[Rfam]
RNA sequence: UAAUGUUGAAAAGCGCCAGGACUGCAUGGGUUGCAGUUGACGAGGUGGAGGUUUAUCGAAUUAGUUCGGCGGAUGCCUCCCGGUGUUGCGUCUACACCGAGGACUCUCUAUACAAUUCAGCUAGGUGACUAUCUGAGCAAAAAUAGGGAGCAGACGUGAA
Numbered sequence: 001u002a003a004u005g006u007u008g009a010a011a012a013g014c015g016c017c018a019g020g021a022c023u024g025c026a027u028g029g030g031u032u033g034c035a036g037u038u039g040a041c042g043a044g045g046u047g048g049a050g051g052u053u054u055a056u057c058g059a060a061u062u063a064g065u066u067c068g069g070c071g072g073a074u075g076c077c078u079c080c081c082g083g084u085g086u087u088g089c090g091u092c093u094a095c096a097c098c099g100a101g102g103a104c105u106c107u108c109u110a111u112a113c114a115a116u117u118c119a120g121c122u123a124g125g126u127g128a129c130u131a132u133c134u135g136a137g138c139a140a141a142a143a144u145a146g147g148g149a150g151c152a153g154a155c156g157u158g159a160a
Stems, first nucleotide, its partner, number of pairs: 020038007047080005056069004081099006104150007118135003122131003